[Rfam]
RNA sequence: AAAAAGGGCUUCUGUCCUGAGUGGCACACGUAGGGUAGGGCAGCUUGAUUGUUCCACGUGCAUACUCGACAUUAAGACAUUUCAGAAGCAGUUUUUUUUAUUAUUUGGGCAGCUGGUGAUUGUUGGUCCUGGUACUCCU
Numbered sequence: 001a002a003a004a005a006g007g008g009c010u011u012c013u014g015u016c017c018u019g020a021g022u023g024g025c026a027c028a029c030g031u032a033g034g035g036u037a038g039g040g041c042a043g044c045u046u047g048a049u050u051g052u053u054c055c056a057c058g059u060g061c062a063u064a065c066u067c068g069a070c071a072u073u074a075a076g077a078c079a080u081u082u083c084a085g086a087a088g089c090a091g092u093u094u095u096u097u098u099u100a101u102u103a104u105u106u107g108g109g110c111a112g113c114u115g116g117u118g119a120u121u122g123u124u125g126g127u128c129c130u131g132g133u134a135c136u137c138c139u
Base pairs, nucleotide, nucleotide: 008089009088010087011086012085013026014025015024016023027060028059029058030057031056033054034053035052036051037050038049064081066079107137108136109135112133113132114131115130116129118128119127120126121125
RNA: U11 spliceosomal RNA
Organism: Cnephaeus nilssonii